Notes:
The family of this 67-nucleotide RNA from Rhinolophus ferrumequinum is "Small Nucleolar RNA SNORD64".
[Rfam]
RNA sequence: GGGCUCGUGAUGAGCUGUGUUUGCUGAGCAAGAUGAAGUAAAGUGCAAUGUGAGUCCUCUGAAGUCC
Numbered sequence: 001g002g003g004c005u006c007g008u009g010a011u012g013a014g015c016u017g018u019g020u021u022u023g024c025u026g027a028g029c030a031a032g033a034u035g036a037a038g039u040a041a042a043g044u045g046c047a048a049u050g051u052g053a054g055u056c057c058u059c060u061g062a063a064g065u066c067c
Stems, first nucleotide, its partner, number of pairs: 001067005012059003020053002025047002028044002
Dot-bracket structure: (((((......(((.....((...((.((.............)).))....))...)))...)))))
Record summary: Lineage of the source: Eukaryota > Opisthokonta > Sarcopterygii > Chiroptera > Rhinolophus. Its Rfam clan is "SNORD74 clan". The human snoRNA HBII-13 belongs to the C/D family of snoRNAs.